[Rfam]
RNA sequence: GAUAACGCUUUAGGGGACCCUGGUACAGGCAGGCCAGGACUCCCCACUUUUACACCCGCAGCCUUGAUGCCCCGCGCAUCAACGCGCAGCCGUUUUGGGGAACCCGGUACAGGCAGGCCGGCAUUCCCUCUUUUAUUACUCGCGCAGGUUUACCUGCAACCGCCAGCGGCCAUCCUGUGGCGCUCCGGCCCAGUCGCCGUGCAGGGCACGGGCCGCCACCAACGUCAGCAG
Dot-bracket structure: ............((((((.(((((........))))))..)))))............((........(((.....))).....))...........(((((..(((((........)))))..))))).................(((.(...((((........))))..).))).........(((((......(.......).....)))))................